[Rfam]
RNA: FMN riboswitch aptamer (RFN element)
Organism: Emergencia timonensis
RNA sequence: UUCUUUCUUCGGAAACGAGUUUUACUCUACUGGCGGUACAGCCCGCGAGCAAUACGCUAAUUCGGUUUAAUUCCGAAGCCAACAGUUAGUCUGGACGGGAGAAGAAAGCU
Numbered sequence: 001u002u003c004u005u006u007c008u009u010c011g012g013a014a015a016c017g018a019g020u021u022u023u024a025c026u027c028u029a030c031u032g033g034c035g036g037u038a039c040a041g042c043c044c045g046c047g048a049g050c051a052a053u054a055c056g057c058u059a060a061u062u063c064g065g066u067u068u069a070a071u072u073c074c075g076a077a078g079c080c081a082a083c084a085g086u087u088a089g090u091c092u093g094g095a096c097g098g099g100a101g102a103a104g105a106a107a108g109c110u
Stems, first nucleotide, its partner, number of pairs: 003108008017027003029090002031081002033046004041079002049057002061077005083093003